[Rfam]
RNA sequence: GCCGGUCCUCGGUAGUGGCUCCCGGGAACGUCCCCGGGCGCUUCGAUCGAAGACCGGC
Numbered sequence: 001g002c003c004g005g006u007c008c009u010c011g012g013u014a015g016u017g018g019c020u021c022c023c024g025g026g027a028a029c030g031u032c033c034c035c036g037g038g039c040g041c042u043u044c045g046a047u048c049g050a051a052g053a054c055c056g057g058c
Base pairs, nucleotide, nucleotide: 001058002057003056004055005054006053007052009050010049011048012047013046017042018041019040021038022037023036024035025034026033
Rfam assigns this 58-nucleotide RNA from Prauserella shujinwangii to the family "Actino-pnp RNA". Rfam classes the family as a cis-regulatory element.